[Rfam]
RNA: Group II catalytic intron D1-D4-1
Organism: Ectothiorhodospira magna
RNA sequence: CGCGCCAAUCGGCAACGCUUGGCGUGAUGAGGCAGAAGUCAGCAGACGGCAUAGUAGCCAAAUGCUCACCGUAAUGGGUGAGACACGGUGAAGGCC
Numbered sequence: 001c002g003c004g005c006c007a008a009u010c011g012g013c014a015a016c017g018c019u020u021g022g023c024g025u026g027a028u029g030a031g032g033c034a035g036a037a038g039u040c041a042g043c044a045g046a047c048g049g050c051a052u053a054g055u056a057g058c059c060a061a062a063u064g065c066u067c068a069c070c071g072u073a074a075u076g077g078g079u080g081a082g083a084c085a086c087g088g089u090g091a092a093g094g095c096c
Stems, first nucleotide, its partner, number of pairs: 001026002004023005010017002038047003048096003057089003067080001